[Rfam]
RNA sequence: AACUUAUCCAGAGAGGUGGAGGGAAUGGCCCAUUGAAACCUCAGCAACAGCUUCUUUUUAGAAGACUGUGCUAACUCCAACAAGCUUAACCGCUUGGAAGAUAAGUU
Numbered sequence: 001a002a003c004u005u006a007u008c009c010a011g012a013g014a015g016g017u018g019g020a021g022g023g024a025a026u027g028g029c030c031c032a033u034u035g036a037a038a039c040c041u042c043a044g045c046a047a048c049a050g051c052u053u054c055u056u057u058u059u060a061g062a063a064g065a066c067u068g069u070g071c072u073a074a075c076u077c078c079a080a081c082a083a084g085c086u087u088a089a090c091c092g093c094u095u096g097g098a099a100g101a102u103a104a105g106u107u
Base pairs, nucleotide, nucleotide: 001107002106003105004104005103006102007101008100013042014041015040016039017038021031022030023029026079027078028077043072044071045070046069048068049067051064052063053062054061076099081096082095083094084093085092
RNA: SAM riboswitch aptamer (S box leader)